[Rfam]
RNA sequence: GUUCGUCUUCAGGGGCAGGGUGCAAUUCCCGACCGGUGGUAAUAGUCCACGACCCGCAUUUGCGGCUGAUCCGGUGCAAUUCCGGAACCGAUAGUACAGUCUAGAUAAAGAAGAUGGGG
Number, nucleotide and partner (000 for none) at each position: 001g000002u000003u117004c116005g115006u114007c113008u112009u111010c110011a000012g000013g000014g000015g000016c000017a000018g030019g029020g028021u000022g000023c000024a000025a000026u000027u000028c020029c019030c018031g000032a100033c099034c090035g089036g050037u049038g048039g047040u000041a000042a000043u000044a000045g088046u087047c039048c038049a037050c036051g000052a000053c000054c065055c064056g000057c000058a000059u000060u000061u000062g000063c000064g055065g054066c000067u000068g000069a000070u086071c085072c084073g083074g082075u000076g000077c000078a000079a000080u000081u000082c074083c073084g072085g071086a070087a046088c045089c035090g034091a000092u103093a102094g101095u000096a000097c000098a000099g033100u032101c094102u093103a092104g000105a000106u000107a000108a000109a000110g010111a009112a008113g007114a006115u005116g004117g003118g000119g000

This 119-nucleotide sequence from Lacticaseibacillus saniviri belongs to the Rfam family "FMN riboswitch aptamer (RFN element)".
About the family: The RFN element is a highly conserved domain that is found frequently in the 5'-untranslated regions of prokaryotic mRNAs that encode for flavin mononucleotide (FMN) biosynthesis and transport proteins.
The family's consensus secondary structure is taken from published work.
A search with the family's covariance model found it, with a score of 101 bits.
The organism belongs to Lacticaseibacillus saniviri, within Bacteria.